This 190-nucleotide RNA sequence from Leptonychotes weddellii belongs to the Rfam family "U2 spliceosomal RNA". Gene Ontology terms of the family: pre-mRNA branch point binding, mRNA branch site recognition and U2 snRNP. Its Rfam clan is "U2 clan". U2 is a small nuclear RNA (snRNA) component of the spliceosome (involved in pre-mRNA splicing). Complementary binding between U2 snRNA (in an area lying towards the 5' end but 3' to hairpin I) and the branchpoint sequence (BPS) of the intron results the bulging out of an unpaired adenosine, on the BPS, which initiates a nucleophilic attack at the intronic 5' splice site, thus starting the first of two transesterification reactions that mediate splicing. Taxonomically the source falls in Leptonychotes (Eukaryota, Eumetazoa, Chordata, Lobodontini). A reference for the family is Zwieb (1997), "The uRNA database", Nucleic Acids Res.
RNA sequence: AUCGCUUCUCGGCCUUUUGACUAAGAUCAAGUGUAGUAUCUGUUACCAGUUUAAUAUCUGAUAUGUUCUUUAUCCGAGGACAAUAUAUAUUGAAUGGAUUCUUGGAGCAGGGAGAUGGAAUAGGAGCUUGCUCCUUCCACUCCACACAUCGACCUGGUAUUGCAGUACUUCCAGGAACGGUACACCCCCA
Numbered sequence: 001a002u003c004g005c006u007u008c009u010c011g012g013c014c015u016u017u018u019g020a021c022u023a024a025g026a027u028c029a030a031g032u033g034u035a036g037u038a039u040c041u042g043u044u045a046c047c048a049g050u051u052u053a054a055u056a057u058c059u060g061a062u063a064u065g066u067u068c069u070u071u072a073u074c075c076g077a078g079g080a081c082a083a084u085a086u087a088u089a090u091u092g093a094a095u096g097g098a099u100u101c102u103u104g105g106a107g108c109a110g111g112g113a114g115a116u117g118g119a120a121u122a123g124g125a126g127c128u129u130g131c132u133c134c135u136u137c138c139a140c141u142c143c144a145c146a147c148a149u150c151g152a153c154c155u156g157g158u159a160u161u162g163c164a165g166u167a168c169u170u171c172c173a174g175g176a177a178c179g180g181u182a183c184a185c186c187c188c189c190a
Base pairs, nucleotide, nucleotide: 007026008025009024011022012021014019044063045062047060048059049058065081066080067079068078069077070076111143112142113141114140117137118136123134124133125132126131148181149180150179151178153175154174155173156172157171
Dot-bracket structure: ......(((.((.(....).)).))).................((.(((........))).)).((((((.....)))))).............................((((..((....((((....)))).))..))))....((((.(((((.............)))))..)))).........